[Rfam]
RNA sequence: UGCCUCCCUCUUUGGGGCGAUCGAUUGCGGAGUCCCCCCCCAUUGAUCGCCCCACAGAGGGUGGCC
Numbered sequence: 001u002g003c004c005u006c007c008c009u010c011u012u013u014g015g016g017g018c019g020a021u022c023g024a025u026u027g028c029g030g031a032g033u034c035c036c037c038c039c040c041c042a043u044u045g046a047u048c049g050c051c052c053c054a055c056a057g058a059g060g061g062u063g064g065c066c
Stems, first nucleotide, its partner, number of pairs: 002065003006061006013054013027040001029038002
RNA: mir-9242 microRNA precursor family
Organism: Myotis lucifugus